[Rfam]
Shown here is a 97-nucleotide sequence, a member of the family "PhotoRC-II RNA". Pairs were carried over by alignment from the consensus structure, which is taken from published work. It is one of the family's seed sequences.
RNA sequence: ACACAUAUAUCUGCUCCCCUUAAACCAAGACCUAUAGGGAGGAUAAAUUACGUCUUUCAUAUCCGAAAGUGAGGGAUUUUCGGAAAUAAGUUUCGCA
Numbered sequence: 001a002c003a004c005a006u007a008u009a010u011c012u013g014c015u016c017c018c019c020u021u022a023a024a025c026c027a028a029g030a031c032c033u034a035u036a037g038g039g040a041g042g043a044u045a046a047a048u049u050a051c052g053u054c055u056u057u058c059a060u061a062u063c064c065g066a067a068a069g070u071g072a073g074g075g076a077u078u079u080u081c082g083g084a085a086a087u088a089a090g091u092u093u094c095g096c097a
Stems, first nucleotide, its partner, number of pairs: 014041005021036002027056005062084007